Shown here is a 104-nucleotide sequence from Chelonoidis abingdonii, a member of the family "Small nucleolar RNA SNORD46".
From the family's description: U40 is a C/D box small nucleolar RNA, also known as snoZ153 in plants.
The pairing is the family consensus, mapped onto this sequence.
Lineage of the source: Eukaryota > Eumetazoa > Sauropsida > Testudinoidea > Chelonoidis nigra species complex.
[Rfam]
RNA sequence: GUGAAUAAUGAUGAUAACUUUGACCUUAGGCGGGCUUAUAAGAAGUCUUGGAGGCCUCUGUAAAGCUCACAGUGAUAGGAAUGUCAUAGUUACACUGAGUGCAU
Numbered sequence: 001g002u003g004a005a006u007a008a009u010g011a012u013g014a015u016a017a018c019u020u021u022g023a024c025c026u027u028a029g030g031c032g033g034g035c036u037u038a039u040a041a042g043a044a045g046u047c048u049u050g051g052a053g054g055c056c057u058c059u060g061u062a063a064a065g066c067u068c069a070c071a072g073u074g075a076u077a078g079g080a081a082u083g084u085c086a087u088a089g090u091u092a093c094a095c096u097g098a099g100u101g102c103a104u
Stems, first nucleotide, its partner, number of pairs: 001104003005100002